[Rfam]
A member of the RNA family "ZMP/ZTP riboswitch aptamer (pfl RNA motif)" from Fumia xinanensis, 84 nucleotides long. Its family is annotated with regulation of purine nucleotide biosynthetic process and one-carbon metabolic process in the Gene Ontology. Lineage of the source: Bacteria > Clostridia > Eubacteriales > Oscillospiraceae > Fumia. A search with the family's covariance model found it, with a score of 67 bits.
RNA sequence: AAUCCUUUGCGCGACUGACGGGUAAUUGUGGGUUCACCACAGGGAAGUGCAAAGAGUAAACAGCCGACCGUCUGGGCAGUCUUG
Numbered sequence: 001a002a003u004c005c006u007u008u009g010c011g012c013g014a015c016u017g018a019c020g021g022g023u024a025a026u027u028g029u030g031g032g033u034u035c036a037c038c039a040c041a042g043g044g045a046a047g048u049g050c051a052a053a054g055a056g057u058a059a060a061c062a063g064c065c066g067a068c069c070g071u072c073u074g075g076g077c078a079g080u081c082u083u084g
Base pairs, nucleotide, nucleotide: 003056005054006053007052008051009050010049011048012047015044016043017072018071019070020069021068028040029039030038031037061079063077064076065075